[Rfam]
RNA sequence: GUGCAUUCAGUAGGAAUUGAAGUUACGAAUUCGCCAAUUAUGAGUUAGCCGCUUUAACCAUUCAGCCAUGGAUGC
Number, nucleotide and partner (000 for none) at each position: 001g000002u000003g075004c074005a073006u072007u071008c070009a000010g026011u025012a024013g023014g000015a000016a000017u000018u000019g000020a000021a000022g000023u013024u012025a011026c010027g000028a000029a000030u000031u000032c000033g000034c000035c000036a000037a000038u000039u000040a069041u068042g067043a000044g066045u065046u064047a000048g062049c000050c000051g059052c000053u000054u000055u000056a000057a000058c000059c051060a000061u000062u048063c000064a046065g045066c044067c042068a041069u040070g008071g007072a006073u005074g004075c003